RNA sequence: GGAAGAUGAUAGCUCGCGCCUUCCGGGCUUACACACGAAGAGACUUGUUCUCUAUUGAUGCCCGUGGGAAAGUCCGAGACAAGCCAUAAUGCCUUUGCGGGUAGACGACUCACGUUGUCGAGUGGGGACCAGAAAACAGUCGCUGCUUGCAGCUUCUUGAAACUUUCACCUGGCGGAAAUGGUACCACAGUGCGAUGCGCGGGACCGACCUUGUGUUGGUAACUCGAUUCGGAUUACUCAUCGUCUUCC
Numbered sequence: 001g002g003a004a005g006a007u008g009a010u011a012g013c014u015c016g017c018g019c020c021u022u023c024c025g026g027g028c029u030u031a032c033a034c035a036c037g038a039a040g041a042g043a044c045u046u047g048u049u050c051u052c053u054a055u056u057g058a059u060g061c062c063c064g065u066g067g068g069a070a071a072g073u074c075c076g077a078g079a080c081a082a083g084c085c086a087u088a089a090u091g092c093c094u095u096u097g098c099g100g101g102u103a104g105a106c107g108a109c110u111c112a113c114g115u116u117g118u119c120g121a122g123u124g125g126g127g128a129c130c131a132g133a134a135a136a137c138a139g140u141c142g143c144u145g146c147u148u149g150c151a152g153c154u155u156c157u158u159g160a161a162a163c164u165u166u167c168a169c170c171u172g173g174c175g176g177a178a179a180u181g182g183u184a185c186c187a188c189a190g191u192g193c194g195a196u197g198c199g200c201g202g203g204a205c206c207g208a209c210c211u212u213g214u215g216u217u218g219g220u221a222a223c224u225c226g227a228u229u230c231g232g233a234u235u236a237c238u239c240a241u242c243g244u245c246u247u248c249c
Stems, first nucleotide, its partner, number of pairs: 001249004008242003013203007024064004039053005074232005083174003090103005104119006120171001122169005204220006
Dot-bracket structure: ((((...(((..(((((((....((((...........(((((.....))))).......)))).........[[[[[....(((....(((((....)))))((((((....))))))(.(((((......................................))))).))))......................)))))))((((((.....)))))).......]]]]].......)))...))))
Background:
A member of the RNA family "Nuclear RNase P" from Syncephalastrum racemosum, 249 nucleotides long. By type it is a ribozyme. The family's consensus secondary structure is taken from published work.